[Rfam]
RNA sequence: CCUCUGCUUUAACACGGGGGCACCUGCUGCGGAAAGAAAAGCAAGUGCUUCCGUGUUUCAGUGGAGG
Dot-bracket structure: (((.((((..(((((((((((((.((((...........)))).)))))))))))))..)))).)))
The family of this 67-nucleotide RNA from Odocoileus virginianus is "mir-302 microRNA precursor family". Pairs were carried over by alignment from the consensus structure, which was predicted with RNAalifold.